[Rfam]
RNA: Streptococcus sRNA SpR19
RNA sequence: GUAAAUCCUAAGCGAGCCUGUGGCAGUGUGAGUCAGGUGGUUAAGAGAUAAGUGUGGCGCUUUUGGUAUUUUAAUAAAAAUAAUGAAGUAAUAAAUUAGGGUGGAACCGCGUUUCUGACG
Numbered sequence: 001g002u003a004a005a006u007c008c009u010a011a012g013c014g015a016g017c018c019u020g021u022g023g024c025a026g027u028g029u030g031a032g033u034c035a036g037g038u039g040g041u042u043a044a045g046a047g048a049u050a051a052g053u054g055u056g057g058c059g060c061u062u063u064u065g066g067u068a069u070u071u072u073a074a075u076a077a078a079a080a081u082a083a084u085g086a087a088g089u090a091a092u093a094a095a096u097u098a099g100g101g102u103g104g105a106a107c108c109g110c111g112u113u114u115c116u117g118a119c120g
Base pairs, nucleotide, nucleotide: 001107002106006104007103008101009100016067017066018065022064023063025061026060027059028058031055034052038048070088071087072086075085076084